7SK RNA: a 333-nucleotide sequence from Motacilla alba. 7SK was discovered as an abundant small nuclear RNA in the mid-70s but a possible function has only recently been suggested. The source organism's lineage runs through Eukaryota, Vertebrata, Archosauria, Telluraves and Motacilla. By type it is a non-coding RNA gene. The family is grouped with related families in Rfam's "7SK clan". It scores 125 bits against the family's covariance model.
RNA sequence: GGAUUUGAGGGAGGGUAACCUAGCUGUGAGAUCUGAUAUGCCACUGAUUGCAGGGGUUGAUCUGACUUAUCUGCCUAGCUUAUGCAGGUGUUCCCUUUCUUCCUCGACAUUCCGUGUGCGCUCCUCUUAAUGAUGUGUGCUUGGUUAAUGAGUAGAGCCUCCCCAACAGACAUGGUAUUGUUCAUUGGUCAAAGGGGUGCUGUAGCUAUGCUCCCCUGCUGGAAGCUCUAAGUAAGCUCAAGGUCCAUAUGUAGAUAAAUGUAGGGUAAGCAAGCAUCCAGUACUGAAGACACAUUCAAAUGAGAAGCUGCAUGCACCAGUCUGCCAGUGGCU
Numbered sequence: 001g002g003a004u005u006u007g008a009g010g011g012a013g014g015g016u017a018a019c020c021u022a023g024c025u026g027u028g029a030g031a032u033c034u035g036a037u038a039u040g041c042c043a044c045u046g047a048u049u050g051c052a053g054g055g056g057u058u059g060a061u062c063u064g065a066c067u068u069a070u071c072u073g074c075c076u077a078g079c080u081u082a083u084g085c086a087g088g089u090g091u092u093c094c095c096u097u098u099c100u101u102c103c104u105c106g107a108c109a110u111u112c113c114g115u116g117u118g119c120g121c122u123c124c125u126c127u128u129a130a131u132g133a134u135g136u137g138u139g140c141u142u143g144g145u146u147a148a149u150g151a152g153u154a155g156a157g158c159c160u161c162c163c164c165a166a167c168a169g170a171c172a173u174g175g176u177a178u179u180g181u182u183c184a185u186u187g188g189u190c191a192a193a194g195g196g197g198u199g200c201u202g203u204a205g206c207u208a209u210g211c212u213c214c215c216c217u218g219c220u221g222g223a224a225g226c227u228c229u230a231a232g233u234a235a236g237c238u239c240a241a242g243g244u245c246c247a248u249a250u251g252u253a254g255a256u257a258a259a260u261g262u263a264g265g266g267u268a269a270g271c272a273a274g275c276a277u278c279c280a281g282u283a284c285u286g287a288a289g290a291c292a293c294a295u296u297c298a299a300a301u302g303a304g305a306a307g308c309u310g311c312a313u314g315c316a317c318c319a320g321u322c323u324g325c326c327a328g329u330g331g332c333u
Stems, first nucleotide, its partner, number of pairs: 001113003005107007017098002023095001028093003031089005036083002039078001042073002046071003050066001121175002125170002127144004132140001145166002152162001154160001205275003212268001214266006227255003232252003236248001298333001304326001307321004